[Rfam]
RNA sequence: CUCUGGCGGUGAGUCAGGGCGGAAGGAG
Number, nucleotide and partner (000 for none) at each position: 001c019002u018003c017004u016005g015006g014007c013008g000009g000010u000011g000012a000013g007014u006015c005016a004017g003018g002019g001020c000021g000022g000023a000024a000025g000026g000027a000028g000
This 28-nucleotide RNA from Geotrypetes seraphini belongs to the Rfam family "L31-Firmicutes ribosomal protein leader". The family's RNA type in Rfam is cis-regulatory leader. The family's consensus secondary structure is taken from published work. On this family, see Eckert and Weinberg, BMC Microbiol 2020: "Discovery of 20 novel ribosomal leader candidates in bacteria and archaea". The family is grouped with related families in Rfam's "Ribosomal Protein L31 Leader clan".